A member of the RNA family "Selenocysteine transfer RNA" from Stentor coeruleus, 85 nucleotides long. The match comes from Rfam's covariance-model search (65 bits).
[Rfam]
RNA sequence: GCUUGGAUGAACCGGACUGGGUUCGGCAUGGACUUCAAAUCCAUGGGAGAUGAAAAUCUCAGGUGUUCGAUUCACCCUUCUGAGC
Numbered sequence: 001g002c003u004u005g006g007a008u009g010a011a012c013c014g015g016a017c018u019g020g021g022u023u024c025g026g027c028a029u030g031g032a033c034u035u036c037a038a039a040u041c042c043a044u045g046g047g048a049g050a051u052g053a054a055a056a057u058c059u060c061a062g063g064u065g066u067u068c069g070a071u072u073c074a075c076c077c078u079u080c081u082g083a084g085c
Stems, first nucleotide, its partner, number of pairs: 001085007009077001012026006027045006047060005062076004